[Rfam]
A member of the RNA family "glmS glucosamine-6-phosphate activated ribozyme aptamer" from Butyricicoccus porcorum, 161 nucleotides long. Rfam's curators write: This entry contains a glucosamine-6-phosphate activated ribozyme that is found in the mRNA for GlmS. GlmS is an enzyme that uses fructose-6-phosphate and glutamine to generate glucosamine-6-phosphate. Rfam classes the family as a riboswitch.

RNA sequence: GCCCGGAACCAAGCGCCAGAGCUGCCGUGCAGGGCAUGCUGACGAGGUGGAAGUGAUCGAAAAUUCGGCGGAUGCUUCCCGCCCGGCCAGACACGCGGGCGAUGGCGUUUCUACAAAUCCUGUGGGAAACCACAGGCACAGAAGGAAACGCAACCGUGUCU
Numbered sequence: 001g002c003c004c005g006g007a008a009c010c011a012a013g014c015g016c017c018a019g020a021g022c023u024g025c026c027g028u029g030c031a032g033g034g035c036a037u038g039c040u041g042a043c044g045a046g047g048u049g050g051a052a053g054u055g056a057u058c059g060a061a062a063a064u065u066c067g068g069c070g071g072a073u074g075c076u077u078c079c080c081g082c083c084c085g086g087c088c089a090g091a092c093a094c095g096c097g098g099g100c101g102a103u104g105g106c107g108u109u110u111c112u113a114c115a116a117a118u119c120c121u122g123u124g125g126g127a128a129a130c131c132a133c134a135g136g137c138a139c140a141g142a143a144g145g146a147a148a149c150g151c152a153a154c155c156g157u158g159u160c161u
Base pairs, nucleotide, nucleotide: 020040021039022038023036024035025034026033049079050078051077052076053075057068058067059066060065080101081100082099083098084097085096105151106150107149108148109147110146111145119136120135121134122133123132124131125130